RNA sequence: CUAAUUGCAGGAGAUGGCAUUCCUCCCGUGAAAAACCGCCCUUAAUGGGCUGAUGAUGCCUACGUUAAC
Numbered sequence: 001c002u003a004a005u006u007g008c009a010g011g012a013g014a015u016g017g018c019a020u021u022c023c024u025c026c027c028g029u030g031a032a033a034a035a036c037c038g039c040c041c042u043u044a045a046u047g048g049g050c051u052g053a054u055g056a057u058g059c060c061u062a063c064g065u066u067a068a069c
Stems, first nucleotide, its partner, number of pairs: 010026004016060006038050004
RNA: Fluoride riboswitch aptamer (crcB RNA motif)
Organism: Providencia stuartii